[Rfam]
RNA sequence: UUCACGCAUGAAUGUAAGUCACUUUGGAUAAAAGUAUCUGCUAAAUGUUAUAUA
Numbered sequence: 001u002u003c004a005c006g007c008a009u010g011a012a013u014g015u016a017a018g019u020c021a022c023u024u025u026g027g028a029u030a031a032a033a034g035u036a037u038c039u040g041c042u043a044a045a046u047g048u049u050a051u052a053u054a
Base pairs, nucleotide, nucleotide: 013043014041015040016039021035022034023033024032025031